[Rfam]
RNA sequence: AAAGUUCUUCGGGGUAAGGUGCAAUUCCUAACCGGCUGUGAUUGCUUAAGCAUAAGUCAGCGAGCCUAUUGGCAUGAUAUGGUGAGAAUCCAUAACCGACAGUAAAGUCUGGAUGAGAGAAGAUAGAA
Numbered sequence: 001a002a003a004g005u006u007c008u009u010c011g012g013g014g015u016a017a018g019g020u021g022c023a024a025u026u027c028c029u030a031a032c033c034g035g036c037u038g039u040g041a042u043u044g045c046u047u048a049a050g051c052a053u054a055a056g057u058c059a060g061c062g063a064g065c066c067u068a069u070u071g072g073c074a075u076g077a078u079a080u081g082g083u084g085a086g087a088a089u090c091c092a093u094a095a096c097c098g099a100c101a102g103u104a105a106a107g108u109c110u111g112g113a114u115g116a117g118a119g120a121a122g123a124u125a126g127a128a
Stems, first nucleotide, its partner, number of pairs: 006123005017029003031108002033098002035061004056096002066072001078094005100111003

Shown here is a 128-nucleotide RNA sequence from Eubacterium sp. AF36-5BH, a member of the family "FMN riboswitch aptamer (RFN element)". The RFN element is a highly conserved domain that is found frequently in the 5'-untranslated regions of prokaryotic mRNAs that encode for flavin mononucleotide (FMN) biosynthesis and transport proteins. This element is a metabolite-dependent riboswitch that directly binds FMN in the absence of proteins. In Bacillus subtilis, the riboswitch most likely controls gene expression by causing premature transcription termination within the 5' untranslated region of the ribDEAHT operon and precluding access to the ribosome-binding site of ypaA mRNA.The FMN riboswitch structure, reported in present an FMN-bound six-stem junction, adopts a butterfly-like scaffold, stapled together by opposingly directed but nearly identically folded peripheral domains. It scores 105 bits against the family's covariance model. The family's consensus secondary structure is taken from published work.